[Rfam]
RNA sequence: UAUAGAUAAUGGCAAACUUAUUGAAAAAUAAGGACGCAAAGCUAAAGGGACUAACGGUCAUCCGAGAUCAAUGUCAGCCAGUUACCUCA
Dot-bracket structure: ...........((...((((((....))))))...))..((((...(((((....((((......))))...)))..))))))......
Numbered sequence: 001u002a003u004a005g006a007u008a009a010u011g012g013c014a015a016a017c018u019u020a021u022u023g024a025a026a027a028a029u030a031a032g033g034a035c036g037c038a039a040a041g042c043u044a045a046a047g048g049g050a051c052u053a054a055c056g057g058u059c060a061u062c063c064g065a066g067a068u069c070a071a072u073g074u075c076a077g078c079c080a081g082u083u084a085c086c087u088c089a
Stems, first nucleotide, its partner, number of pairs: 012037002017032006040083004047079002049075003056069004
Background
The record is an 89-nucleotide RNA sequence from Anaerobacillus isosaccharinicus, which matches "c-di-GMP-I riboswitch aptamer" in Rfam. The base pairs follow the family's consensus structure, which is taken from published work. Taxonomically the source falls in Anaerobacillus (Bacteria, Bacillati, Bacillota, Caryophanales). The literature on the family includes a 2007 paper in Nucleic Acids Res by Weinberg et al., "Identification of 22 candidate structured RNAs in bacteria using the CMfinder comparative genomics pipeline".